[Rfam]
RNA sequence: UUAAAAGUGAAUAUUUUGCCGCAGAAAGUAGGUGCGUUAGCUUAAAUAUCCUACCGAGGCUUUGGAUAAAUUUAUCAAAGAUCUCUUUCUGUGUGACGUUAUUUACGCAGAGAGGGAUCUUUUUCUGUAACG
Numbered sequence: 001u002u003a004a005a006a007g008u009g010a011a012u013a014u015u016u017u018g019c020c021g022c023a024g025a026a027a028g029u030a031g032g033u034g035c036g037u038u039a040g041c042u043u044a045a046a047u048a049u050c051c052u053a054c055c056g057a058g059g060c061u062u063u064g065g066a067u068a069a070a071u072u073u074a075u076c077a078a079a080g081a082u083c084u085c086u087u088u089c090u091g092u093g094u095g096a097c098g099u100u101a102u103u104u105a106c107g108c109a110g111a112g113a114g115g116g117a118u119c120u121u122u123u124u125c126u127g128u129a130a131c132g
Stems, first nucleotide, its partner, number of pairs: 028054005034041002082117015
RNA: Ribosomal protein L10 leader